[Rfam]
The family of this 127-nucleotide RNA sequence from Sapayoa aenigma is "Small nucleolar RNA SNORA40". Gene Ontology terms of the family: RNA processing and nucleolus.

RNA sequence: AGCACUUGAUCAGGUUUUGUCUGUUGCUGUAGACAAAAACCUGGAACCUAGUGCUAAGAAAAAACCCUUCUUUUGCAACCCACAGCUGAUGAACAUAUUAGUUGUGUUACUUAUAUGAAGGGACAGU
Numbered sequence: 001a002g003c004a005c006u007u008g009a010u011c012a013g014g015u016u017u018u019g020u021c022u023g024u025u026g027c028u029g030u031a032g033a034c035a036a037a038a039a040c041c042u043g044g045a046a047c048c049u050a051g052u053g054c055u056a057a058g059a060a061a062a063a064a065c066c067c068u069u070c071u072u073u074u075g076c077a078a079c080c081c082a083c084a085g086c087u088g089a090u091g092a093a094c095a096u097a098u099u100a101g102u103u104g105u106g107u108u109a110c111u112u113a114u115a116u117g118a119a120g121g122g123a124c125a126g127u
Stems, first nucleotide, its partner, number of pairs: 001055006008048001010045001013040001015038006025031001066122003071118002074115002081106010
From the family's description: The snoRNA ACA 40 belongs to the H/ACA family of snoRNAs and guides the pseudouridylation of 28S rRNA subunit at position U4565. NB This family has a high threshold value to exclude a large number of closely related sequences that do not appear to have conserved H and ACA boxes, and may be pseudogenes.